[Rfam]
RNA sequence: GCCCUCCGAUUCCCUUUCCCAUCGGAUCUGAACACCGAUCUUGGUGGUCGUAAAAGGGGGAAAAGUAACACAGAAACUGGCUUCACAGUGCUUAUAGUCUGUGGGCUAGUUUCAAACAAGG
Numbered sequence: 001g002c003c004c005u006c007c008g009a010u011u012c013c014c015u016u017u018c019c020c021a022u023c024g025g026a027u028c029u030g031a032a033c034a035c036c037g038a039u040c041u042u043g044g045u046g047g048u049c050g051u052a053a054a055a056g057g058g059g060g061a062a063a064a065g066u067a068a069c070a071c072a073g074a075a076a077c078u079g080g081c082u083u084c085a086c087a088g089u090g091c092u093u094a095u096a097g098u099c100u101g102u103g104g105g106c107u108a109g110u111u112u113c114a115a116a117c118a119a120g121g
Stems, first nucleotide, its partner, number of pairs: 003060005019047005025040004077109007